[Rfam]
RNA sequence: CUGCAGCCAAUUAAGCUGAAUAUGCUCUAUCCCCCCUGGGGGCCUGGUGUGCAAUAGUUGCAAACAGUGGCCUCUGUGGUAGUGUGUGCAGCUUGUUGUUUGUAUUGGUUGCCCUAAGGGACCAUGGAGACAGCC
Numbered sequence: 001c002u003g004c005a006g007c008c009a010a011u012u013a014a015g016c017u018g019a020a021u022a023u024g025c026u027c028u029a030u031c032c033c034c035c036c037u038g039g040g041g042g043c044c045u046g047g048u049g050u051g052c053a054a055u056a057g058u059u060g061c062a063a064a065c066a067g068u069g070g071c072c073u074c075u076g077u078g079g080u081a082g083u084g085u086g087u088g089c090a091g092c093u094u095g096u097u098g099u100u101u102g103u104a105u106u107g108g109u110u111g112c113c114c115u116a117a118g119g120g121a122c123c124a125u126g127g128a129g130a131c132a133g134c135c
Stems, first nucleotide, its partner, number of pairs: 002053004019048001021046002025042004078123003089111005
The family of this 135-nucleotide sequence from Lynx pardinus is "Small nucleolar RNA SNORA70". The base pairs follow the family's consensus structure, which was predicted with PFOLD. From the family's description: snoRNA U70 seems to be exclusive to mammals and is a member of the H/ACA class of snoRNA which contain H (ANANNA) and ACA box motifs. H/ACA box snoRNAs are involved in the conversion of uridines to pseudouridines (5-ribosyluracil) a constituent of structural RNAs (transfer, ribosomal, small nuclear, and small nucleolar). NCBI's taxonomy places the organism under Eukaryota, Deuterostomia, Teleostomi, Eutheria, Lynx. It scores 125 bits against the family's covariance model. A reference for the family is Charette and Gray (2000), "Pseudouridine in RNA: what, where, how, and why", IUBMB Life.